Shown here is an 87-nucleotide RNA sequence from Salipaludibacillus neizhouensis, a member of the family "BsrC".
A reference for the family is Saito et al. (2008), "Novel small RNA-encoding genes in the intergenic regions of Bacillus subtilis", Gene.
Rfam's curators write: The 301 nucleotide sequence from Kouji Nakamura has been trimmed to a highly conserved ~85 nucleotide long core to form this family.
By type it is a small RNA.
Pairs were carried over by alignment from the consensus structure, which was predicted with CMfinder.

RNA sequence: AAUUGCUUAAGUAAUGAAAGCCCUACCUCUCUUUCAUCUCUGCGGCUCCGAGACCGCGCCAGUUUAAAUAAGGCAUACUCGAAGUUU
Numbered sequence: 001a002a003u004u005g006c007u008u009a010a011g012u013a014a015u016g017a018a019a020g021c022c023c024u025a026c027c028u029c030u031c032u033u034u035c036a037u038c039u040c041u042g043c044g045g046c047u048c049c050g051a052g053a054c055c056g057c058g059c060c061a062g063u064u065u066a067a068a069u070a071a072g073g074c075a076u077a078c079u080c081g082a083a084g085u086u087u
Base pairs, nucleotide, nucleotide: 034067036065039062041058042057043056044055045054047052